A member of the RNA family "Group II catalytic intron D1-D4-3" from Maledivibacter halophilus, 169 nucleotides long. The organism belongs to Maledivibacter, within Bacteria. It scores 53 bits against the family's covariance model.
RNA sequence: CUUUCGGCGACGAAAGGGUCUGAAGGAAGCUGAUGGUGGUUGUUGGAACAAAAUGUUAGUGAACCAGUGUUGGCAUGUGUAGUGGAUAACCUUCCAAAAAGUGGGAACGUCCUAAAAUUAGCUAAACUGCAUAUGUUUUGAUGGUUGUUUUAACAACAGGCGGAGUAAC
Numbered sequence: 001c002u003u004u005c006g007g008c009g010a011c012g013a014a015a016g017g018g019u020c021u022g023a024a025g026g027a028a029g030c031u032g033a034u035g036g037u038g039g040u041u042g043u044u045g046g047a048a049c050a051a052a053a054u055g056u057u058a059g060u061g062a063a064c065c066a067g068u069g070u071u072g073g074c075a076u077g078u079g080u081a082g083u084g085g086a087u088a089a090c091c092u093u094c095c096a097a098a099a100a101g102u103g104g105g106a107a108c109g110u111c112c113u114a115a116a117a118u119u120a121g122c123u124a125a126a127c128u129g130c131a132u133a134u135g136u137u138u139u140g141a142u143g144g145u146u147g148u149u150u151u152a153a154c155a156a157c158a159g160g161c162g163g164a165g166u167a168a169c
Base pairs, nucleotide, nucleotide: 001016002015003014004013005012006011029169031167032166036161037160041155042154043153044152045151046150047149048148049147050146051145064144065143066142068140073136074135075134077132078131079130080129081128082127083126084112085111086110087109090105091104092103